[Rfam]
RNA sequence: AGGCAGCCUCUCUGGUACGGCCCCGCGCCGAGAGGGGCGUUUAACCGCUCGGACAUCAACGCCUUUCGCUCUUCAGACUCGCUGAGACGGUCACGUCUCUGAAGCCGGUCUAGUAAGCCAAAGCACAUC
Dot-bracket structure: .(((..(((((((.................))))))).))).....................(((..(((....(((((.(((..(((......))).....))).)))))....)))..)))......
Overview:
The record is a 129-nucleotide sequence from Eucalyptus grandis, which matches "Small nucleolar RNA snoR77" in Rfam. A reference for the family is Marker et al. (2002), "Experimental RNomics: identification of 140 candidates for small non-messenger RNAs in the plant Arabidopsis thaliana", Curr Biol. Pairs were carried over by alignment from the consensus structure, which was predicted with WAR. The family has 5 seed sequences and 649 matches in Rfam 15.1. It is annotated as an H/ACA-box small nucleolar RNA. Taxonomically the source falls in Eucalyptus (Eukaryota, Magnoliopsida, Gunneridae, Pentapetalae).